[Rfam]
RNA sequence: UUAACACUUUUGCAGGUCCUCUCCUAGACAGCGGGGCCAGGGUUUGGUAGCUGGUGCUGAGAGAAAACCCUUGAUUGCAUCCUUGCCCUGGAACUGUACCAGUGGCAGUUGUCACUCAGUGGAACAGGA
Number, nucleotide and partner (000 for none) at each position: 001u000002u000003a058004a000005c056006a055007c054008u053009u000010u000011u000012g000013c046014a045015g044016g000017u042018c041019c040020u039021c000022u036023c035024c034025u033026a000027g000028a000029c000030a000031g000032c000033g025034g024035g023036g022037c000038c000039a020040g019041g018042g017043u000044u015045u014046g013047g000048u000049a000050g000051c000052u000053g008054g007055u006056g005057c000058u003059g000060a000061g000062a000063g000064a000065a000066a000067a000068c000069c122070c121071u119072u118073g117074a116075u000076u114077g113078c000079a112080u111081c000082c000083u108084u107085g106086c105087c104088c102089u101090g100091g099092a000093a000094c000095u000096g000097u000098a000099c091100c090101a089102g088103u000104g087105g086106c085107a084108g083109u000110u000111g080112u079113c077114a076115c000116u074117c073118a072119g071120u000121g070122g069123a000124a000125c000126a000127g000128g000129a000
RNA: Small nucleolar RNA SNORA30/SNORA37 family